mir-9193 microRNA precursor family: a 75-nucleotide RNA from Myotis lucifugus.
The match comes from Rfam's covariance-model search (74 bits).
The organism belongs to Myotis, within Eukaryota.
RNA sequence: CUUGGGGGGAGGGGGGUUCCUCAGCCUGGAUUGUGAGAGGGUGCAGGCCAAGCUGAGGGACCCCACCUGUGUACA
Numbered sequence: 001c002u003u004g005g006g007g008g009g010a011g012g013g014g015g016g017u018u019c020c021u022c023a024g025c026c027u028g029g030a031u032u033g034u035g036a037g038a039g040g041g042u043g044c045a046g047g048c049c050a051a052g053c054u055g056a057g058g059g060a061c062c063c064c065a066c067c068u069g070u071g072u073a074c075a
Stems, first nucleotide, its partner, number of pairs: 003073002006070001008068002013064013028049002031046005
Dot-bracket structure: ..((.(.((...(((((((((((((..((.(((((......))))).))..)))))))))))))..)).).))..